[Rfam]
A member of the RNA family "mir-632 microRNA precursor family" from Orycteropus afer, 84 nucleotides long. The source organism's lineage runs through Eukaryota, Vertebrata, Dipnotetrapodomorpha, Tubulidentata and Orycteropus afer. Rfam links the family to the GO terms RISC complex and miRNA-mediated post-transcriptional gene silencing. It scores 87 bits against the family's covariance model.
RNA sequence: CGGGUCGCAGUGCCUGACGGGAAGCGGAGCGGCGAACGAGGCCGUCGGCCAUUUUGUGCCUGUUUCCUGUGGGAUGCGGUGCUA
Numbered sequence: 001c002g003g004g005u006c007g008c009a010g011u012g013c014c015u016g017a018c019g020g021g022a023a024g025c026g027g028a029g030c031g032g033c034g035a036a037c038g039a040g041g042c043c044g045u046c047g048g049c050c051a052u053u054u055u056g057u058g059c060c061u062g063u064u065u066c067c068u069g070u071g072g073g074a075u076g077c078g079g080u081g082c083u084a
Stems, first nucleotide, its partner, number of pairs: 002082001004080005010075002014073002017070011029057004034050001037047003